[Rfam]
RNA: Archaeal large subunit ribosomal RNA, nucleotides 682 to 951
RNA sequence: GAGUUCACCGUUGUGGCGAGCUUAACGGCUCACCAAAGCCGGUAGGCGUAGGGAAACCGAGAGCCCGCAACCGGUGUAAGCCGGUGAGGGGCCGGGUCCGAACAGGGCCUGUAGUCACAGCGGUGAGGCUAGAAACCGGGCGAUCUAGCCCUGGGUAGGGUGAAGCCGGGCGAAAGCUCGGUGGAGGCCCGAACGCGUCCUGACGUGCAAUUCGGUGCGUUGACCUGGGGCUAGGGGCUAAAAACCAAUCUAGCCCGGUGAUAGCUAGUU
Numbered sequence: 001g002a003g004u005u006c007a008c009c010g011u012u013g014u015g016g017c018g019a020g021c022u023u024a025a026c027g028g029c030u031c032a033c034c035a036a037a038g039c040c041g042g043u044a045g046g047c048g049u050a051g052g053g054a055a056a057c058c059g060a061g062a063g064c065c066c067g068c069a070a071c072c073g074g075u076g077u078a079a080g081c082c083g084g085u086g087a088g089g090g091g092c093c094g095g096g097u098c099c100g101a102a103c104a105g106g107g108c109c110u111g112u113a114g115u116c117a118c119a120g121c122g123g124u125g126a127g128g129c130u131a132g133a134a135a136c137c138g139g140g141c142g143a144u145c146u147a148g149c150c151c152u153g154g155g156u157a158g159g160g161u162g163a164a165g166c167c168g169g170g171c172g173a174a175a176g177c178u179c180g181g182u183g184g185a186g187g188c189c190c191g192a193a194c195g196c197g198u199c200c201u202g203a204c205g206u207g208c209a210a211u212u213c214g215g216u217g218c219g220u221u222g223a224c225c226u227g228g229g230g231c232u233a234g235g236g237g238c239u240a241a242a243a244a245c246c247a248a249u250c251u252a253g254c255c256c257g258g259u260g261a262u263a264g265c266u267a268g269u270u
Stems, first nucleotide, its partner, number of pairs: 005126013020047004026041004051058002063092004070085006095109004129268002132265001136258006145234011156222001158190004165182007194219004199215002202213002236246002
Dot-bracket structure: ....(((((((((((((..((((..((((........))))..))))...((....))....((((...((((((....))))))...))))..((((.......))))....)))))))))))))..((.(...((((((...((((((((((((.((((...(((((((....)))))))....))))...((((.((.((........))))))))..).))))))))))).((.......))......))))))......).))..